[Rfam]
RNA sequence: GUUACCGCGAGGUAUAACCUGAAAGAAGCCUAAAACAAAAGUUGGUACUAACGAACAGAAACUGCAUACUAAGGCUUACCCGGGGGGUAAUGUGGCAAUAAACACAGACGCCCUAAAGCCGUCCGUAACCCGGGGUAGUAAAUGCAGUAGUAUUAACAGGAAGAUAAUGCA
Number, nucleotide and partner (000 for none) at each position: 001g000002u000003u014004a013005c012006c011007g000008c000009g000010a000011g006012g005013u004014a003015u000016a000017a000018c000019c000020u000021g000022a000023a000024a000025g000026a000027a000028g000029c000030c169031u000032a000033a000034a000035a000036c163037a000038a000039a000040a000041g157042u156043u155044g154045g153046u152047a151048c150049u149050a148051a000052c000053g000054a000055a000056c000057a000058g000059a000060a000061a000062c147063u146064g145065c144066a143067u142068a000069c000070u000071a000072a000073g000074g139075c138076u137077u000078a000079c134080c133081c132082g131083g130084g129085g113086g112087g111088u110089a000090a000091u106092g105093u104094g103095g000096c000097a000098a000099u000100a000101a000102a000103c094104a093105c092106a091107g000108a000109c000110g088111c087112c086113c085114u000115a000116a000117a000118g000119c000120c000121g000122u000123c000124c000125g000126u000127a000128a000129c084130c083131c082132g081133g080134g079135g000136u000137a076138g075139u074140a000141a000142a067143u066144g065145c064146a063147g062148u050149a049150g048151u047152a046153u045154u044155a043156a042157c041158a000159g000160g000161a000162a000163g036164a000165u000166a000167a000168u000169g030170c000171a000

Shown here is a 171-nucleotide RNA from Petrimonas mucosa, a member of the family "Group II catalytic intron D1-D4-3". A search with the family's covariance model found it, with a score of 122 bits. Group II introns are found in rRNA, tRNA and mRNA of organelles in fungi, plants and protists, and also in mRNA in bacteria.